[Rfam]
RNA sequence: CUUACAGAUUUCUUUGGCAUUCUGUCCACCUCCUUUUAUGUACAUAAAUGUAUGUAUAUGUGUUGUGUGCGAAAGAAGGAGGUGGCCAUAUUGCCAGUAGACAUCUGUUAG
Numbered sequence: 001c002u003u004a005c006a007g008a009u010u011u012c013u014u015u016g017g018c019a020u021u022c023u024g025u026c027c028a029c030c031u032c033c034u035u036u037u038a039u040g041u042a043c044a045u046a047a048a049u050g051u052a053u054g055u056a057u058a059u060g061u062g063u064u065g066u067g068u069g070c071g072a073a074a075g076a077a078g079g080a081g082g083u084g085g086c087c088a089u090a091u092u093g094c095c096a097g098u099a100g101a102c103a104u105c106u107g108u109u110a111g
Stems, first nucleotide, its partner, number of pairs: 011101001014097006023088002026085012

This 111-nucleotide RNA sequence from Raphanus sativus belongs to the Rfam family "MIR394 microRNA precursor family". Taxonomically the source falls in Raphanus (Eukaryota, Embryophyta, Mesangiospermae, rosids). Gene Ontology terms of the family: miRNA-mediated post-transcriptional gene silencing and RISC complex.